Group II catalytic intron D1-D4-1: an 85-nucleotide sequence from Pseudazoarcus pumilus. The pairing is the family consensus, mapped onto this sequence. From the family's description: Group II introns are found in rRNA, tRNA and mRNA of organelles in fungi, plants and protists, and also in mRNA in bacteria. A search with the family's covariance model found it, with a score of 42 bits.

RNA sequence: GCUUUGUGUCUGAAAGGGCGACGGCGCCGAGCCGGAGCGAGAAGUCAGCAGAGGCCGUAGUAGCUGCCGUGCUGGGGCGAAGGGC
Numbered sequence: 001g002c003u004u005u006g007u008g009u010c011u012g013a014a015a016g017g018g019c020g021a022c023g024g025c026g027c028c029g030a031g032c033c034g035g036a037g038c039g040a041g042a043a044g045u046c047a048g049c050a051g052a053g054g055c056c057g058u059a060g061u062a063g064c065u066g067c068c069g070u071g072c073u074g075g076g077g078c079g080a081a082g083g084g085c
Stems, first nucleotide, its partner, number of pairs: 001025002004023001007020005045052002054085003063078003067074001